The record is a 107-nucleotide RNA from Clostridium tetanomorphum, which matches "Glycine riboswitch aptamer" in Rfam.
This family represents the bacterial glycine riboswitch.
The organism belongs to Clostridium, within Bacteria.
RNA sequence: GUGAAGGAUAUGAGAGAGCGCUUAUAAUUAAGCCGCCGAAGGGACAAGUUUUGUUUAUCCCAAUUAAGCAAAAUGAAAUUCUCAGGCAAAAGGAUUAUAUCUGGAUA
Numbered sequence: 001g002u003g004a005a006g007g008a009u010a011u012g013a014g015a016g017a018g019c020g021c022u023u024a025u026a027a028u029u030a031a032g033c034c035g036c037c038g039a040a041g042g043g044a045c046a047a048g049u050u051u052u053g054u055u056u057a058u059c060c061c062a063a064u065u066a067a068g069c070a071a072a073a074u075g076a077a078a079u080u081c082u083c084a085g086g087c088a089a090a091a092g093g094a095u096u097a098u099a100u101c102u103g104g105a106u107a
Stems, first nucleotide, its partner, number of pairs: 006102008020033004035087003038083002042081003048074010